This 188-nucleotide sequence from Actinacidiphila bryophytorum belongs to the Rfam family "c-di-AMP riboswitch aptamer (ydaO/yuaA leader)". The organism belongs to Actinacidiphila, within Bacteria. Rfam describes the family as follows. This family represents a conserved RNA structure found upstream of the ydaO and yuaA genes in Bacillus subtilis and related genes in other bacteria. The ydaO/yuaA element is thought to act as a genetic 'off' switch for the ydaO and yuaA genes in its native state. It is believed that the element may be triggered during osmotic shock leading to activation of ydaO, a predicted amino acid transporter gene, and members of the yuaA-yubG operon which code for KtrA and KtrB K+ transporters.
[Rfam]
RNA sequence: UGAUCGGAACAGCCGAGCAUUCAGCGCAGGAGCGGGGGACCCAGGUAAGCCGCCGUCCGGGGACACCGGACGGCUCGGGGUGAAGUCGCGCCGCCGCACGCACACCGCACAGCGCGGGCACGGCAGGCGCGGCCGGGCAUCUCCUGCCCGAACCCGACAGCUCACCUCGCAGGCGUAGGAGAGGAAUU
Numbered sequence: 001u002g003a004u005c006g007g008a009a010c011a012g013c014c015g016a017g018c019a020u021u022c023a024g025c026g027c028a029g030g031a032g033c034g035g036g037g038g039a040c041c042c043a044g045g046u047a048a049g050c051c052g053c054c055g056u057c058c059g060g061g062g063a064c065a066c067c068g069g070a071c072g073g074c075u076c077g078g079g080g081u082g083a084a085g086u087c088g089c090g091c092c093g094c095c096g097c098a099c100g101c102a103c104a105c106c107g108c109a110c111a112g113c114g115c116g117g118g119c120a121c122g123g124c125a126g127g128c129g130c131g132g133c134c135g136g137g138c139a140u141c142u143c144c145u146g147c148c149c150g151a152a153c154c155c156g157a158c159a160g161c162u163c164a165c166c167u168c169g170c171a172g173g174c175g176u177a178g179g180a181g182a183g184g185a186a187u188u
Stems, first nucleotide, its partner, number of pairs: 012174003020031003032170006042077001078155003086132007135149004